[Rfam]
RNA: Microsporidia small subunit ribosomal RNA, nucleotides 864 to 1416
Organism: Nematocida parisii
RNA sequence: UGACGGAUUAACACACAAGGAGUGGGGCGUGCGGCUUAAUUAGACUCAACACUAGGCAGCUUACCAGCGGGGGAGCCCGGCGGGAUCGGCGCGAGAUUCGGGCGAGAGUGGUGCAUGGCCGCUGUUAAUUCGUGGACUGAUUUGUCUGGUUGAAUCCGAUAACGGAUGCGAUCCGCGUGUGCUUUGUGAUAAAAACAGCAGAGGACAGACGGCCGGCGGGCAGCCGGAGGAGGGCGGGCGAUAGCAGGUCUGUGAUGCCCUUGGAAGCGCUGGGCUGCACGCGCGUCACAGUGCGCGCAGGAAGGAGUGCCGAGAGGCGCAGGAGGAGCGGCGCGCAGGGGAUGCCCGUGCGGAACCGCGGGCUGAACACGGAAUUUCCAGUACCCGCGGGUCACCAGCCCGCGGAGACAGGGUCCCUGUUUUUUGUACACACCGCCCGUCGCUAUCUGAGAUGGGUGCGCGCGGCAAGCGCGGGGGCGCGUGAGCUGCUGUGCCUAGAUUGGAUAAAAGUCGUAACAAGGUUUCCGUAGGAGAACCUGCGGAAGGAUCAAUA
Numbered sequence: 001u002g003a004c005g006g007a008u009u010a011a012c013a014c015a016c017a018a019g020g021a022g023u024g025g026g027g028c029g030u031g032c033g034g035c036u037u038a039a040u041u042a043g044a045c046u047c048a049a050c051a052c053u054a055g056g057c058a059g060c061u062u063a064c065c066a067g068c069g070g071g072g073g074a075g076c077c078c079g080g081c082g083g084g085a086u087c088g089g090c091g092c093g094a095g096a097u098u099c100g101g102g103c104g105a106g107a108g109u110g111g112u113g114c115a116u117g118g119c120c121g122c123u124g125u126u127a128a129u130u131c132g133u134g135g136a137c138u139g140a141u142u143u144g145u146c147u148g149g150u151u152g153a154a155u156c157c158g159a160u161a162a163c164g165g166a167u168g169c170g171a172u173c174c175g176c177g178u179g180u181g182c183u184u185u186g187u188g189a190u191a192a193a194a195a196c197a198g199c200a201g202a203g204g205a206c207a208g209a210c211g212g213c214c215g216g217c218g219g220g221c222a223g224c225c226g227g228a229g230g231a232g233g234g235c236g237g238g239c240g241a242u243a244g245c246a247g248g249u250c251u252g253u254g255a256u257g258c259c260c261u262u263g264g265a266a267g268c269g270c271u272g273g274g275c276u277g278c279a280c281g282c283g284c285g286u287c288a289c290a291g292u293g294c295g296c297g298c299a300g301g302a303a304g305g306a307g308u309g310c311c312g313a314g315a316g317g318c319g320c321a322g323g324a325g326g327a328g329c330g331g332c333g334c335g336c337a338g339g340g341g342a343u344g345c346c347c348g349u350g351c352g353g354a355a356c357c358g359c360g361g362g363c364u365g366a367a368c369a370c371g372g373a374a375u376u377u378c379c380a381g382u383a384c385c386c387g388c389g390g391g392u393c394a395c396c397a398g399c400c401c402g403c404g405g406a407g408a409c410a411g412g413g414u415c416c417c418u419g420u421u422u423u424u425u426g427u428a429c430a431c432a433c434c435g436c437c438c439g440u441c442g443c444u445a446u447c448u449g450a451g452a453u454g455g456g457u458g459c460g461c462g463c464g465g466c467a468a469g470c471g472c473g474g475g476g477g478c479g480c481g482u483g484a485g486c487u488g489c490u491g492u493g494c495c496u497a498g499a500u501u502g503g504a505u506a507a508a509a510g511u512c513g514u515a516a517c518a519a520g521g522u523u524u525c526c527g528u529a530g531g532a533g534a535a536c537c538u539g540c541g542g543a544a545g546g547a548u549c550a551a552u553a
Base pairs, nucleotide, nucleotide: 001430002429003427004426005425007424010421011420012419013418015414016413019378020377021376022375023374024289026287027286028285029284030283031282032281033280034278035277040055041054042053043052064273065272066271067270068269069268075103076102077101078100079099080098086094087093088092107261108260110259111258112257113256116255117253118249119248120247121245122244123243124242128167129166130165131164132163133162134143135142136141147158148157149156173237174236175235176234201206210230213227214226215225216224217223293336294335295334296333297332298331339368344363345362346361347360348359349358350357385405386404387403388402389401390400391399435517438513439512441510444506445505446504447503448502449501450500453497454496455495456494457493458492459491460490462489463488464487465486466485469482470481471480472479473478522545523544524543525542526541527540528539529538530537531536